The family of this 67-nucleotide RNA sequence from Psychrobacillus glaciei is "Bacillaceae-1 RNA". A search with the family's covariance model found it, with a score of 55 bits. Rfam classes the family as a small RNA. Lineage of the source: Bacteria > Bacillota > Caryophanales > Bacillaceae > Psychrobacillus.
[Rfam]
RNA sequence: GAUAGAGUUAGGUCUGCAAAGUUCGCCACAUCCUGUGGCAAAACAGACAUGACCCGCAUCGUGCGGG
Numbered sequence: 001g002a003u004a005g006a007g008u009u010a011g012g013u014c015u016g017c018a019a020a021g022u023u024c025g026c027c028a029c030a031u032c033c034u035g036u037g038g039c040a041a042a043a044c045a046g047a048c049a050u051g052a053c054c055c056g057c058a059u060c061g062u063g064c065g066g067g
Stems, first nucleotide, its partner, number of pairs: 012048005025039005053067005